[Rfam]
RNA sequence: AAAAGCCGUUGGGGUGGAAACACGGCAACACUCCCAGGCGCUUUUUAAU
Numbered sequence: 001a002a003a004a005g006c007c008g009u010u011g012g013g014g015u016g017g018a019a020a021c022a023c024g025g026c027a028a029c030a031c032u033c034c035c036a037g038g039c040g041c042u043u044u045u046u047a048a049u
Stems, first nucleotide, its partner, number of pairs: 001045006009037005014031003
RNA: Cyano-1 RNA
Organism: Nostoc sp. 'Peltigera malacea cyanobiont' DB3992